[Rfam]
RNA sequence: UCACGGUGAUGAAAGACUGGUUCCUUAACAUUCGCAGUUUCCACGGUAGGAGUACGCUUACGAACCCAUCGUUAGUACUCUCGGUGACCGCUCUUCUUUAGAGACCUUCCUAGGAUGUCUGAGUGA
Numbered sequence: 001u002c003a004c005g006g007u008g009a010u011g012a013a014a015g016a017c018u019g020g021u022u023c024c025u026u027a028a029c030a031u032u033c034g035c036a037g038u039u040u041c042c043a044c045g046g047u048a049g050g051a052g053u054a055c056g057c058u059u060a061c062g063a064a065c066c067c068a069u070c071g072u073u074a075g076u077a078c079u080c081u082c083g084g085u086g087a088c089c090g091c092u093c094u095u096c097u098u099u100a101g102a103g104a105c106c107u108u109c110c111u112a113g114g115a116u117g118u119c120u121g122a123g124u125g126a
Base pairs, nucleotide, nucleotide: 001126002125003124004123050080051079052078053077054076055075